[Rfam]
RNA sequence: CUUGUGGACUGUCACAUCAAAUGAGAGUAGACUUUUUAGGAACCUAUAGAGUCAAAAUCAGGCAGGAUGAAGCAAGAA
Dot-bracket structure: (((((...(((((........(((.....(((..(............)..)))....))))))))......)))))..
Numbered sequence: 001c002u003u004g005u006g007g008a009c010u011g012u013c014a015c016a017u018c019a020a021a022u023g024a025g026a027g028u029a030g031a032c033u034u035u036u037u038a039g040g041a042a043c044c045u046a047u048a049g050a051g052u053c054a055a056a057a058u059c060a061g062g063c064a065g066g067a068u069g070a071a072g073c074a075a076g077a078a
Stems, first nucleotide, its partner, number of pairs: 001076005009065005022060003030053003035048001